About this RNA
eL15-Euryarchaeota ribosomal protein leader: a 50-nucleotide RNA from Halorhabdus utahensis. By type it is a cis-regulatory leader. The organism belongs to Halorhabdus utahensis, within Archaea.

RNA sequence: CCUGUUUAGGCAGGUCGGAAUGUGGCCGGCGGAGCCGGCUGAACCACCCA
Numbered sequence: 001c002c003u004g005u006u007u008a009g010g011c012a013g014g015u016c017g018g019a020a021u022g023u024g025g026c027c028g029g030c031g032g033a034g035c036c037g038g039c040u041g042a043a044c045c046a047c048c049c050a
Base pairs, nucleotide, nucleotide: 001014002013003012004011005010017045018044024040025039026038027037028036
The sequence is in the family's curated seed alignment.